Description
Ribosomal protein L10 leader: a 169-nucleotide sequence from Nodularia spumigena. A reference for the family is Iben and Draper (2008), "Specific interactions of the L10(L12)4 ribosomal protein complex with mRNA, rRNA, and L11", Biochemistry. Rfam describes the family as follows. This family is a putative r-protein leader autoregulatory structure found in B. subtilis and other low-GC Gram-positive bacteria. It is located in the 5' untranslated regions of mRNAs encoding ribosomal proteins L10 and L12 (rplJ-rplL).

RNA sequence: AAAACUAAAUAAGCCAAGCCGGAGACAGCAGGAGCCAAAAGCUCAAAUAUCCUGCCGAGGUUAAAGCUCUAAUUGCCUGAAGUGCCACCCAUUGAGGUGUGAGUACUAACGUAUUAUGAGUUUUCCUAUGAAACCCCGGCUCGGAUAGCUGGGGUUAAUUGUUUUUACA
Numbered sequence: 001a002a003a004a005c006u007a008a009a010u011a012a013g014c015c016a017a018g019c020c021g022g023a024g025a026c027a028g029c030a031g032g033a034g035c036c037a038a039a040a041g042c043u044c045a046a047a048u049a050u051c052c053u054g055c056c057g058a059g060g061u062u063a064a065a066g067c068u069c070u071a072a073u074u075g076c077c078u079g080a081a082g083u084g085c086c087a088c089c090c091a092u093u094g095a096g097g098u099g100u101g102a103g104u105a106c107u108a109a110c111g112u113a114u115u116a117u118g119a120g121u122u123u124u125c126c127u128a129u130g131a132a133a134c135c136c137c138g139g140c141u142c143g144g145a146u147a148g149c150u151g152g153g154g155u156u157a158a159u160u161g162u163u164u165u166u167a168c169a
Stems, first nucleotide, its partner, number of pairs: 028055006034042002134154008